Shown here is a 105-nucleotide sequence from Quercus lobata, a member of the family "Small nucleolar RNA snoR97". The family's consensus secondary structure was predicted with WAR. On this family, see Marker et al., Curr Biol 2002: "Experimental RNomics: identification of 140 candidates for small non-messenger RNAs in the plant Arabidopsis thaliana". Its family is annotated with nucleolus and RNA processing in the Gene Ontology.
Nucleotides: 105
Stems, first nucleotide, its partner, number of pairs: 043097005053086006062078002
Number, partner (000 for none) and nucleotide at each position: 001000c002000c003000u004000a005000u006000u007000u008000g009000u010000u011000g012000g013000g014000u015000c016000u017000a018000g019000a020000g021000c022000c023000a024000g025000a026000a027000u028000a029000a030000c031000c032000c033000a034000u035000a036000a037000a038000u039000u040000a041000u042000c043097u044096g045095u046094u047093g048000u049000u050000a051000u052000c053086a054085g055084u056083u057082c058081c059000a060000u061000a062078u063077c064000u065000u066000u067000u068000g069000u070000a071000u072000u073000c074000c075000a076000u077063g078062a079000a080000u081058g082057g083056a084055g085054u086053u087000u088000a089000a090000u091000g092000a093047c094046a095045a096044c097043a098000c099000c100000a101000c102000a103000c104000a105000a